[Rfam]
RNA sequence: GAAGGUCUUCAGGGCAGGGUGAAAUUCCCGACCGGCGGUAAAGUCCGCGAGCAGCGAAAGCUGCAGAACUGGUGUAAUUCCAGUACCGACAGUAAAGUCUGGAUGGAAGAAGAUAAUA
Numbered sequence: 001g002a003a004g005g006u007c008u009u010c011a012g013g014g015c016a017g018g019g020u021g022a023a024a025u026u027c028c029c030g031a032c033c034g035g036c037g038g039u040a041a042a043g044u045c046c047g048c049g050a051g052c053a054g055c056g057a058a059a060g061c062u063g064c065a066g067a068a069c070u071g072g073u074g075u076a077a078u079u080c081c082a083g084u085a086c087c088g089a090c091a092g093u094a095a096a097g098u099c100u101g102g103a104u105g106g107a108a109g110a111a112g113a114u115a116a117u118a
Base pairs, nucleotide, nucleotide: 005114006113007112008111009110010109017029018028019027031098032097033088034087035048036047037046038045043086044085051064052063053062068084069083070082071081072080090101091100092099
Dot-bracket structure: ....((((((......(((.......))).[[((((((....[[))))..(((........)))...(((((.......)))))]])).(((....]]))).......))))))....